[Rfam]
RNA sequence: ACACGGAUUGGAGGUGGUUCGAGGAUAUGAAUAGCUCUUGGACUUGUGAGGUGGCUGUCCGCUAGCCGCAAGGCUCAGCUAGUGGCAGCGAAUUCCCGCAGCCACCCGACCCGCAGGGCGUCGAGUUGUCCACUCGACCGUGCUCCUACUCUCCGGAGGCGAGCGCAGCCCUGCGGGUCGUCCACG
Numbered sequence: 001a002c003a004c005g006g007a008u009u010g011g012a013g014g015u016g017g018u019u020c021g022a023g024g025a026u027a028u029g030a031a032u033a034g035c036u037c038u039u040g041g042a043c044u045u046g047u048g049a050g051g052u053g054g055c056u057g058u059c060c061g062c063u064a065g066c067c068g069c070a071a072g073g074c075u076c077a078g079c080u081a082g083u084g085g086c087a088g089c090g091a092a093u094u095c096c097c098g099c100a101g102c103c104a105c106c107c108g109a110c111c112c113g114c115a116g117g118g119c120g121u122c123g124a125g126u127u128g129u130c131c132a133c134u135c136g137a138c139c140g141u142g143c144u145c146c147u148a149c150u151c152u153c154c155g156g157a158g159g160c161g162a163g164c165g166c167a168g169c170c171c172u173g174c175g176g177g178u179c180g181u182c183c184a185c186g
Stems, first nucleotide, its partner, number of pairs: 013059006060090004066084001068083002071080001107180013120138006
Rfam assigns this 186-nucleotide RNA from Aeromicrobium sp. Root344 to the family "Actinobacteria sRNA Ms_IGR-5". Taxonomically the source falls in Aeromicrobium (Bacteria, Bacillati, Actinomycetota, Actinomycetes). By type it is a small RNA.